The record is a 106-nucleotide RNA sequence from Lasiosphaeria miniovina, which matches "Small nucleolar RNA Z13/snr52" in Rfam. It is annotated as a C/D-box small nucleolar RNA.
RNA sequence: GGCCACAUCAUGAUGAAAUACUUUCGGAUGUUAAACAUUUAUGUCUAAAUUGCGCAAACAAAUCCCAUGUUGAUAUUCUCCGUUGCCUUCCUUCUGAUCAUGUGGC
Numbered sequence: 001g002g003c004c005a006c007a008u009c010a011u012g013a014u015g016a017a018a019u020a021c022u023u024u025c026g027g028a029u030g031u032u033a034a035a036c037a038u039u040u041a042u043g044u045c046u047a048a049a050u051u052g053c054g055c056a057a058a059c060a061a062a063u064c065c066c067a068u069g070u071u072g073a074u075a076u077u078c079u080c081c082g083u084u085g086c087c088u089u090c091c092u093u094c095u096g097a098u099c100a101u102g103u104g105g106c
Stems, first nucleotide, its partner, number of pairs: 003105003025082004
A search with the family's covariance model found it, with a score of 74 bits.
The family has 42 seed sequences and 1,203 matches in Rfam 15.1.
The family's consensus secondary structure was predicted with PFOLD.
The source organism's lineage runs through Eukaryota, Dikarya, Pezizomycotina, sordariomyceta and Lasiosphaeria.